[Rfam]
A member of the RNA family "Mammalian CPEB3 ribozyme" from Geotrypetes seraphini, 78 nucleotides long. Pairs were carried over by alignment from the consensus structure, which is taken from published work. A search with the family's covariance model found it, with a score of 37 bits.

RNA sequence: AGUCCAGUUUCAGGGAUUAUAGCAGAAACAUUUAUGUCACAGCCCCUGACAGAUUCCUCUGAAUGUGUGACUUCUUCU
Numbered sequence: 001a002g003u004c005c006a007g008u009u010u011c012a013g014g015g016a017u018u019a020u021a022g023c024a025g026a027a028a029c030a031u032u033u034a035u036g037u038c039a040c041a042g043c044c045c046c047u048g049a050c051a052g053a054u055u056c057c058u059c060u061g062a063a064u065g066u067g068u069g070a071c072u073u074c075u076u077c078u
Base pairs, nucleotide, nucleotide: 013046014045015044017042018041021078022077024075025074026073027072050067051066053064054063055062056061